[Rfam]
RNA sequence: AGCUUCCGGGUCUGUGGUUGAAAGUCGAUGCCAGCCGCAGGCGAAACGACCCACGUAAGGCGACCGAACAAAAACACCCCUGACGGUCGCUGAGCAUGGUGCGGCUUAGUGUAAGUCCUGCCCGCCGCGGGUGCUGCUCUUACUAUAGGCGCGGGGACGAGACACCCCGACAUCAUUGCGGCGGAGAGGGCCGGCGUGGGAGAAAGAGGGGACUCCUGCAAAGGCUCCAGCAGGCGAGUGUGGGGGCAAAGACCAGGUCAGCCGGAAGCU
Numbered sequence: 001a002g003c004u005u006c007c008g009g010g011u012c013u014g015u016g017g018u019u020g021a022a023a024g025u026c027g028a029u030g031c032c033a034g035c036c037g038c039a040g041g042c043g044a045a046a047c048g049a050c051c052c053a054c055g056u057a058a059g060g061c062g063a064c065c066g067a068a069c070a071a072a073a074a075c076a077c078c079c080c081u082g083a084c085g086g087u088c089g090c091u092g093a094g095c096a097u098g099g100u101g102c103g104g105c106u107u108a109g110u111g112u113a114a115g116u117c118c119u120g121c122c123c124g125c126c127g128c129g130g131g132u133g134c135u136g137c138u139c140u141u142a143c144u145a146u147a148g149g150c151g152c153g154g155g156g157a158c159g160a161g162a163c164a165c166c167c168c169g170a171c172a173u174c175a176u177u178g179c180g181g182c183g184g185a186g187a188g189g190g191c192c193g194g195c196g197u198g199g200g201a202g203a204a205a206g207a208g209g210g211g212a213c214u215c216c217u218g219c220a221a222a223g224g225c226u227c228c229a230g231c232a233g234g235c236g237a238g239u240g241u242g243g244g245g246g247c248a249a250a251g252a253c254c255a256g257g258u259c260a261g262c263c264g265g266a267a268g269c270u
Stems, first nucleotide, its partner, number of pairs: 001270009012261003015255005028241003031041001034105006050099002058091002062087001064085001097248001117234005122184009188227004196219002199216003
Dot-bracket structure: (((((((((..((((((((........((([..((((((.]........((......((..(.(....................).)..)).....[))))))))...........((((((((((((((.............................................)))))))))...((((....((.(((............))).))....))))..)))))....)))......]..)))))...))))))))))))